[Rfam]
RNA sequence: CCUGCGAAACUCGAAUGAACGAACGGGGAGAUUCAUCGUCAUUCCUCGGCGCACCGCGCGCGCUCCCGAUGUGUACGGUCUCGACCGUGCGCACGGUGCGCGUCCGUAGCGUCCGGGGACGGCGUGCACUUCUCUCUCAGUACUGCAAUCGCGACCCGUUCGAUGUCGGCCUGAGCGCCGCUCGGGAGCCCGCUCGUCCCCUCGCGGUGGGGCGGACGGACCGGGCGGUGGCCGGCCCGGCUGUCGGAGACGGUACAACUGUGAACCGCGCACGCUACAUUUAAGUGCGUCCGGCCCGACGCAAGGCGUUGCGUAGUCGUCGAAGCCCUGCCCAUGUGCGGACGUCGGCGCUGGCUGCGCCUGUCGUCGCAGCCGUGCAGUCUCGGACUGUGCGCGUUUCGGUCUGCGAUGAUUCAGUUUCGGGCACUCGCAGGACCCGUCUUGAAACACGG
Numbered sequence: 001c002c003u004g005c006g007a008a009a010c011u012c013g014a015a016u017g018a019a020c021g022a023a024c025g026g027g028g029a030g031a032u033u034c035a036u037c038g039u040c041a042u043u044c045c046u047c048g049g050c051g052c053a054c055c056g057c058g059c060g061c062g063c064u065c066c067c068g069a070u071g072u073g074u075a076c077g078g079u080c081u082c083g084a085c086c087g088u089g090c091g092c093a094c095g096g097u098g099c100g101c102g103u104c105c106g107u108a109g110c111g112u113c114c115g116g117g118g119a120c121g122g123c124g125u126g127c128a129c130u131u132c133u134c135u136c137u138c139a140g141u142a143c144u145g146c147a148a149u150c151g152c153g154a155c156c157c158g159u160u161c162g163a164u165g166u167c168g169g170c171c172u173g174a175g176c177g178c179c180g181c182u183c184g185g186g187a188g189c190c191c192g193c194u195c196g197u198c199c200c201c202u203c204g205c206g207g208u209g210g211g212g213c214g215g216a217c218g219g220a221c222c223g224g225g226c227g228g229u230g231g232c233c234g235g236c237c238c239g240g241c242u243g244u245c246g247g248a249g250a251c252g253g254u255a256c257a258a259c260u261g262u263g264a265a266c267c268g269c270g271c272a273c274g275c276u277a278c279a280u281u282u283a284a285g286u287g288c289g290u291c292c293g294g295c296c297c298g299a300c301g302c303a304a305g306g307c308g309u310u311g312c313g314u315a316g317u318c319g320u321c322g323a324a325g326c327c328c329u330g331c332c333c334a335u336g337u338g339c340g341g342a343c344g345u346c347g348g349c350g351c352u353g354g355c356u357g358c359g360c361c362u363g364u365c366g367u368c369g370c371a372g373c374c375g376u377g378c379a380g381u382c383u384c385g386g387a388c389u390g391u392g393c394g395c396g397u398u399u400c401g402g403u404c405u406g407c408g409a410u411g412a413u414u415c416a417g418u419u420u421c422g423g424g425c426a427c428u429c430g431c432a433g434g435a436c437c438c439g440u441c442u443u444g445a446a447a448c449a450c451g452g
Base pairs, nucleotide, nucleotide: 001434002433003432004431005430006429007428011424012423437452438451439450440449

A member of the RNA family "Eukaryotic large subunit ribosomal RNA" from Trichogramma brassicae, 452 nucleotides of a longer RNA.
It scores 2868 bits against the family's covariance model.
Pairs were carried over by alignment from the consensus structure, which is taken from published work.
The family is grouped with related families in Rfam's "LSU clan".
The organism belongs to Trichogramma, within Eukaryota.